[Rfam]
Shown here is a 126-nucleotide RNA from Geodermatophilus marinus, a member of the family "c-di-AMP riboswitch aptamer (ydaO/yuaA leader)". It scores 62 bits against the family's covariance model.
RNA sequence: CCGGCACGACCGCCGGGGCAGGGCCGGGGACCCACCGCACGUCUGGGGUGAAGCGCGCGUGCCGCGCCGGGCGACUCCUCCGUCCGAACCCGUCAGCUAACCCGGUAGGCGGUCUCGUGGAGAACA
Numbered sequence: 001c002c003g004g005c006a007c008g009a010c011c012g013c014c015g016g017g018g019c020a021g022g023g024c025c026g027g028g029g030a031c032c033c034a035c036c037g038c039a040c041g042u043c044u045g046g047g048g049u050g051a052a053g054c055g056c057g058c059g060u061g062c063c064g065c066g067c068c069g070g071g072c073g074a075c076u077c078c079u080c081c082g083u084c085c086g087a088a089c090c091c092g093u094c095a096g097c098u099a100a101c102c103c104g105g106u107a108g109g110c111g112g113u114c115u116c117g118u119g120g121a122g123a124a125c126a
Stems, first nucleotide, its partner, number of pairs: 001022002023106006033045002046091003054066004069085004